[Rfam]
RNA sequence: AUGCGAGGUCCAGAGUCACCUUCCUGGCAUUAAUUGUUGGUUGGGUGCUAGGAUUGCUCGAAAAUAAAAAAAGGGUAUAUUAUGCAAGUAGAGCUUGCUUUUGCGCUCCUCUCCUUCACCUCAUUCCCAAACAUU
Number, nucleotide and partner (000 for none) at each position: 001a000002u000003g000004c060005g059006a058007g057008g054009u053010c052011c051012a000013g000014a049015g048016u000017c047018a046019c045020c044021u043022u000023c000024c000025u039026g000027g037028c036029a000030u000031u000032a000033a000034u000035u000036g028037u027038u000039g025040g000041u000042u000043g021044g020045g019046u018047g017048c015049u014050a000051g011052g010053a009054u008055u000056g000057c007058u006059c005060g004061a000062a000063a000064a000065u000066a000067a000068a000069a000070a000071a000072a000073g128074g127075g000076u000077a124078u123079a000080u000081u000082a000083u118084g117085c000086a116087a115088g114089u000090a000091g111092a110093g109094c000095u000096u000097g106098c105099u000100u000101u000102u000103g000104c000105g098106c097107u000108c000109c093110u092111c091112u000113c000114c088115u087116u086117c084118a083119c000120c000121u000122c000123a078124u077125u000126c000127c074128c073129a000130a000131a000132c000133a000134u000135u000